[Rfam]
RNA: Actinobacteria sRNA Ms_IGR-5
Nucleotides: 247
Stems, first nucleotide, its partner, number of pairs: 014058006059146005065140001067138001069136002071133009164241013179199006
Number, partner (000 for none) and nucleotide at each position: 001000a002000c003000a004000c005000g006000a007000g008000a009000a010000g011000g012000g013000a014058g015057g016056u017055g018054g019053u020000c021000c022000g023000a024000a025000g026000u027000u028000g029000a030000u031000u032000a033000a034000c035000u036000a037000c038000a039000g040000g041000a042000c043000u044000c045000g046000u047000g048000a049000g050000g051000u052000g053019a054018c055017u056016g057015u058014c059146c060145g061144c062143u063142a064000a065140c066000g067138g068000a069136c070135a071133g072132c073131g074130u075129g076128a077127u078126g079125g080000a081000c082000u083000g084000a085000c086000g087000c088000a089000g090000g091000g092000a093000c094000c095000g096000c097000u098000u099000c100000c101000g102000a103000c104000c105000a106000c107000c108000u109000g110000u111000c112000g113000g114000c115000u116000c117000g118000u119000c120000a121000c122000c123000u124000g125079c126078c127077g128076u129075c130074g131073c132072g133071u134000g135070u136069g137000c138067c139000u140065g141000c142063u143062g144061g145060c146059g147000a148000a149000u150000a151000c152000c153000a154000g155000g156000c157000a158000g159000u160000c161000a162000c163000c164241c165240g166239g167238c168237c169236c170235u171234c172233g173232a174231c175230g176229u177000u178000u179199c180198c181197g182196a183195g184194u185000a186000c187000c188000a189000g190000u191000c192000c193000g194184a195183c196182u197181c198180g199179g200000g201000c202000c203000c204000g205000a206000a207000c208000g209000a210000c211000u212000g213000a214000c215000g216000a217000c218000g219000u220000u221000c222000g223000g224000g225000a226000g227000u228000c229176a230175c231174g232173u233172c234171g235170g236169g237168g238167g239166c240165u241164g242000c243000c244000c245000c246000a247000u